[Rfam]
RNA: cspA thermoregulator
RNA sequence: AACUGUUGUAUAUAUAUUGAACGCAGCUAGAAACACAGCGUCUUUUUAACAUCCUCUUUACGUAGCGUUAUUCGUAGUUCUCCGUCCUGUAGUAUUUAAAACUUUGUUCUCUUUCCCGCUAUAUCCGCCUUUUCAAGGCUCUCUUAUUUUUUGAUCUACAGGUAUAUAUUUAUGUCUACUACAAUGACUGGCACAGUAAAAUGGUUCAACGAAACAAAAGGUUUUGGCUUCAUCGAGCAGAAAUCUGGUCCUGAUGUGUUCGCUCACUUCAGCGCGAUCGUAAGCUCUGGCUUCAAAACGUUGGCUGAAGGCCAAGCGGUUGAAUUCAUCGUGACGAAAGGUCCAAAAGGCCCUCAGGCUGAAAACAUCGUAGCGCUAUAAUCUGUCAUAGAUGAAUUGCGAUACAAAGAAGAGGUUGCCGUCAGGCAGCCUUUUUUUA
Numbered sequence: 001a002a003c004u005g006u007u008g009u010a011u012a013u014a015u016a017u018u019g020a021a022c023g024c025a026g027c028u029a030g031a032a033a034c035a036c037a038g039c040g041u042c043u044u045u046u047u048a049a050c051a052u053c054c055u056c057u058u059u060a061c062g063u064a065g066c067g068u069u070a071u072u073c074g075u076a077g078u079u080c081u082c083c084g085u086c087c088u089g090u091a092g093u094a095u096u097u098a099a100a101a102c103u104u105u106g107u108u109c110u111c112u113u114u115c116c117c118g119c120u121a122u123a124u125c126c127g128c129c130u131u132u133u134c135a136a137g138g139c140u141c142u143c144u145u146a147u148u149u150u151u152u153g154a155u156c157u158a159c160a161g162g163u164a165u166a167u168a169u170u171u172a173u174g175u176c177u178a179c180u181a182c183a184a185u186g187a188c189u190g191g192c193a194c195a196g197u198a199a200a201a202u203g204g205u206u207c208a209a210c211g212a213a214a215c216a217a218a219a220g221g222u223u224u225u226g227g228c229u230u231c232a233u234c235g236a237g238c239a240g241a242a243a244u245c246u247g248g249u250c251c252u253g254a255u256g257u258g259u260u261c262g263c264u265c266a267c268u269u270c271a272g273c274g275c276g277a278u279c280g281u282a283a284g285c286u287c288u289g290g291c292u293u294c295a296a297a298a299c300g301u302u303g304g305c306u307g308a309a310g311g312c313c314a315a316g317c318g319g320u321u322g323a324a325u326u327c328a329u330c331g332u333g334a335c336g337a338a339a340g341g342u343c344c345a346a347a348a349g350g351c352c353c354u355c356a357g358g359c360u361g362a363a364a365a366c367a368u369c370g371u372a373g374c375g376c377u378a379u380a381a382u383c384u385g386u387c388a389u390a391g392a393u394g395a396a397u398u399g400c401g402a403u404a405c406a407a408a409g410a411a412g413a414g415g416u417u418g419c420c421g422u423c424a425g426g427c428a429g430c431c432u433u434u435u436u437u438u439a
Stems, first nucleotide, its partner, number of pairs: 001015001004012002022240001027237002030234001038230001040228003043221004055216001057214002061211003065207001067205003073174005079168001086162007094112001127139003176191003180187001244333001246331003253261002264322001266320003274313001275311001279304001282301001288297001339354003344350001356377002359373003381403003386395003409436012